[Rfam]
RNA sequence: GGCCUAAGCCACGUCUCCGGUAGCUACAAGCUUUGACCGGAGAUGCUUUGAUUAGGCCAAAACAGAGUUGGUUUCUGACAUUUCACAUGUUGAUAGGAACCUGGGGCUGCUUCUCUAUCGGUCUACAGAGCCGGUUUCUGUGAUUACAUUU
Numbered sequence: 001g002g003c004c005u006a007a008g009c010c011a012c013g014u015c016u017c018c019g020g021u022a023g024c025u026a027c028a029a030g031c032u033u034u035g036a037c038c039g040g041a042g043a044u045g046c047u048u049u050g051a052u053u054a055g056g057c058c059a060a061a062a063c064a065g066a067g068u069u070g071g072u073u074u075c076u077g078a079c080a081u082u083u084c085a086c087a088u089g090u091u092g093a094u095a096g097g098a099a100c101c102u103g104g105g106g107c108u109g110c111u112u113c114u115c116u117a118u119c120g121g122u123c124u125a126c127a128g129a130g131c132c133g134g135u136u137u138c139u140g141u142g143a144u145u146a147c148a149u150u151u
Base pairs, nucleotide, nucleotide: 002057003056004055005054006053007052008049012045013044014043015042016041017040019038020037021036023031024030025029083143084142085141086140087139096132097131101128102127103126104124105123106122107121108120
RNA: Small nucleolar RNA snoR2/U65
Organism: Leersia perrieri